A member of the RNA family "Alfalfa mosaic virus coat protein binding (CPB) RNA" from Alfamovirus AMV, 185 nucleotides long. Rfam links the family to the GO term positive regulation of translation. On this family, see Neeleman et al., J Gen Virol 2004: "Efficient translation of alfamovirus RNAs requires the binding of coat protein dimers to the 3' termini of the viral RNAs". By type it is a cis-regulatory element.

RNA sequence: GGAGCUAUAAUACUAAUUUCUGAAUUAGUCAUUGGUAAUUCAAUGCCAACCUCCACAGGGUGGACUAAGGUUGAGGUAUAGAAUCCUAUUCGCUCCUGGUAGGAGAAAUUCUAUAUUGCUUAUAUACGUGCUUGUGCACGUAUAUAAAUGCUCAUGCAAAAUUGCAUGAAUGCCCCUAAGGGAGC
Numbered sequence: 001g002g003a004g005c006u007a008u009a010a011u012a013c014u015a016a017u018u019u020c021u022g023a024a025u026u027a028g029u030c031a032u033u034g035g036u037a038a039u040u041c042a043a044u045g046c047c048a049a050c051c052u053c054c055a056c057a058g059g060g061u062g063g064a065c066u067a068a069g070g071u072u073g074a075g076g077u078a079u080a081g082a083a084u085c086c087u088a089u090u091c092g093c094u095c096c097u098g099g100u101a102g103g104a105g106a107a108a109u110u111c112u113a114u115a116u117u118g119c120u121u122a123u124a125u126a127c128g129u130g131c132u133u134g135u136g137c138a139c140g141u142a143u144a145u146a147a148a149u150g151c152u153c154a155u156g157c158a159a160a161a162u163u164g165c166a167u168g169a170a171u172g173c174c175c176c177u178a179a180g181g182g183a184g185c
Base pairs, nucleotide, nucleotide: 010021012019029042031040047073048072049071050070051069052068053063054062055061056060075117076116077115078114079113080112081111082110083109084108085103086102087101088100089099090098120147121146122145123144124143125142126141127140128139129138130137131136152169153168154167155166156165157164158163174182175181176180